About this RNA: The record is a 129-nucleotide RNA sequence from Salmonella enterica, which matches "isrA Hfq binding RNA" in Rfam. The literature on the family includes a 2008 paper in Nucleic Acids Res by Padalon-Brauch et al., "Small RNAs encoded within genetic islands of Salmonella typhimurium show host-induced expression and role in virulence". Rfam classes the family as a small RNA.
RNA sequence: AUCUUCACUGUCACGCUCGCGCCGGUAUCAAAUCCCGCUUCUGUCAGCCAGUCACCCUUGAGAUGCAGGCUGGGAAUGCGUGAGUAAUAGGUGGUCAUGUGGGUUUUGCUGUUCUCGUGGCGGACGCUG
Numbered sequence: 001a002u003c004u005u006c007a008c009u010g011u012c013a014c015g016c017u018c019g020c021g022c023c024g025g026u027a028u029c030a031a032a033u034c035c036c037g038c039u040u041c042u043g044u045c046a047g048c049c050a051g052u053c054a055c056c057c058u059u060g061a062g063a064u065g066c067a068g069g070c071u072g073g074g075a076a077u078g079c080g081u082g083a084g085u086a087a088u089a090g091g092u093g094g095u096c097a098u099g100u101g102g103g104u105u106u107u108g109c110u111g112u113u114c115u116c117g118u119g120g121c122g123g124a125c126g127c128u129g
Base pairs, nucleotide, nucleotide: 029080032077033076035074036073049072050071051070052069053065054064056062107122108121109120